[Rfam]
RNA sequence: GCCGGGGGCGGUGGCACACACCUGUAGUCCCAGCUACUCAGGAGGCUGAGACAGGAGGAUCUCUUGAGUCCAGUUCUGGUCUGUAGUGCGCUAUGCUGAUCAGGUGUCCGCACUAAGUUUGGCAUUAAUAUGGUGAUCUCUCUGGAGCGGGGGGGGGGGGUGGGGGGUGGGGGGGGGAGAACCACCAGGUUGUCUAAGGAGGGGUGAACCGGCCCAGGUAGGAAACGGAGCAGGUCAAAACUCCCGUGUUGAACAGUAGUGGGAUCUCGCCUGUGAAUAGUAGUAACAGUAGUGAAUAGCCACUGCACUCCAGCCUGGGAAACAUAGUGAGACACCAUCUCUU
Numbered sequence: 001g002c003c004g005g006g007g008g009c010g011g012u013g014g015c016a017c018a019c020a021c022c023u024g025u026a027g028u029c030c031c032a033g034c035u036a037c038u039c040a041g042g043a044g045g046c047u048g049a050g051a052c053a054g055g056a057g058g059a060u061c062u063c064u065u066g067a068g069u070c071c072a073g074u075u076c077u078g079g080u081c082u083g084u085a086g087u088g089c090g091c092u093a094u095g096c097u098g099a100u101c102a103g104g105u106g107u108c109c110g111c112a113c114u115a116a117g118u119u120u121g122g123c124a125u126u127a128a129u130a131u132g133g134u135g136a137u138c139u140c141u142c143u144g145g146a147g148c149g150g151g152g153g154g155g156g157g158g159g160g161u162g163g164g165g166g167g168u169g170g171g172g173g174g175g176g177g178a179g180a181a182c183c184a185c186c187a188g189g190u191u192g193u194c195u196a197a198g199g200a201g202g203g204g205u206g207a208a209c210c211g212g213c214c215c216a217g218g219u220a221g222g223a224a225a226c227g228g229a230g231c232a233g234g235u236c237a238a239a240a241c242u243c244c245c246g247u248g249u250u251g252a253a254c255a256g257u258a259g260u261g262g263g264a265u266c267u268c269g270c271c272u273g274u275g276a277a278u279a280g281u282a283g284u285a286a287c288a289g290u291a292g293u294g295a296a297u298a299g300c301c302a303c304u305g306c307a308c309u310c311c312a313g314c315c316u317g318g319g320a321a322a323c324a325u326a327g328u329g330a331g332a333c334a335c336c337a338u339c340u341c342u343u
Stems, first nucleotide, its partner, number of pairs: 001046003004023003008019001010017001028043003048341004054335001060330002063327002069319005076313004082307007090300005096294001101273006108263002111261005117254009126192004131187005137181001138179005193199002201244005211236004219228001221226001
Shown here is a 343-nucleotide RNA sequence from Mus musculus, a member of the family "Metazoan signal recognition particle RNA". Gene Ontology terms of the family: SRP-dependent cotranslational protein targeting to membrane, signal sequence recognition and signal recognition particle, endoplasmic reticulum targeting. A reference for the family is Wild et al. (2002), "Towards the structure of the mammalian signal recognition particle", Curr Opin Struct Biol. By type it is a non-coding RNA gene. Rfam's curators write: The signal recognition particle (SRP) is a universally conserved ribonucleoprotein. It is involved in the co-translational targeting of proteins to membranes. The family is grouped with related families in Rfam's "SRP clan". A search with the family's covariance model found it, with a score of 190 bits.